drum RNA: a 111-nucleotide sequence from Caproicibacter fermentans. It scores 66 bits against the family's covariance model. The family's consensus secondary structure is taken from published work. About the family: Firmicutes, Bacteroidetes (1 example), Proteobacteria (2 examples), Spirochaetes (2 examples).
[Rfam]
RNA sequence: GACCGUCGAUGCGGAAGGCUCGGUCAGGGGAGUGUUUCGCGGAGGUCUAUUUUACGGUUUGUGUAUUGAACCAAAACCUGAAUAGGCUAUGCCGAAAGAAAAAUACGCACA
Numbered sequence: 001g002a003c004c005g006u007c008g009a010u011g012c013g014g015a016a017g018g019c020u021c022g023g024u025c026a027g028g029g030g031a032g033u034g035u036u037u038c039g040c041g042g043a044g045g046u047c048u049a050u051u052u053u054a055c056g057g058u059u060u061g062u063g064u065a066u067u068g069a070a071c072c073a074a075a076a077c078c079u080g081a082a083u084a085g086g087c088u089a090u091g092c093c094g095a096a097a098g099a100a101a102a103a104u105a106c107g108c109a110c111a
Stems, first nucleotide, its partner, number of pairs: 001047004011040006018033004024081004063106003085093003